[Rfam]
RNA sequence: UCGAACGCCUCACGAUGUGCGCAGAACAUCGUAAUGAUACAAUUACGUUUCACAAUGUACGGAUUAACAUUGUAGUUACAAUACGCUUCACGAUGUGCGCCCAAACAUCGU
Numbered sequence: 001u002c003g004a005a006c007g008c009c010u011c012a013c014g015a016u017g018u019g020c021g022c023a024g025a026a027c028a029u030c031g032u033a034a035u036g037a038u039a040c041a042a043u044u045a046c047g048u049u050u051c052a053c054a055a056u057g058u059a060c061g062g063a064u065u066a067a068c069a070u071u072g073u074a075g076u077u078a079c080a081a082u083a084c085g086c087u088u089c090a091c092g093a094u095g096u097g098c099g100c101c102c103a104a105a106c107a108u109c110g111u
Base pairs, nucleotide, nucleotide: 006021007020008019012032013031014030015029016028017027018026046061047060048059052073053072054071055070056069057068058067084099085098086097090111091110092109093108094107095106096105
This 111-nucleotide RNA sequence belongs to the Rfam family "Fusobacteriales-1 RNA". Rfam classes the family as a cis-regulatory element. The sequence is in the family's curated seed alignment.